[Rfam]
RNA: Bacillus sRNA ncr1015
RNA sequence: UUGUAAGGUAGAACACUUAUGUCUAAAUAAGCAAAUGAGUCGUGGUCUGAUUAUAUCAUCACGUCUCUUGGUAUGCAAUACAAAAGAACCUGAGAACACUACUCAGGUUCUUUUUUUG
Number, nucleotide and partner (000 for none) at each position: 001u000002u000003g000004u000005a000006a000007g000008g000009u000010a000011g000012a000013a000014c000015a000016c000017u000018u000019a000020u000021g000022u000023c000024u000025a000026a000027a000028u000029a000030a000031g000032c000033a000034a072035a000036u070037g067038a064039g000040u000041c000042g060043u000044g000045g000046u000047c000048u000049g000050a000051u000052u000053a000054u000055a000056u000057c000058a000059u000060c042061a000062c000063g000064u038065c000066u000067c037068u000069u000070g036071g000072u034073a000074u000075g000076c000077a000078a000079u000080a000081c000082a114083a113084a112085a111086g110087a109088a108089c107090c106091u105092g104093a103094g000095a000096a000097c000098a000099c000100u000101a000102c000103u093104c092105a091106g090107g089108u088109u087110c086111u085112u084113u083114u082115u000116u000117u000118g000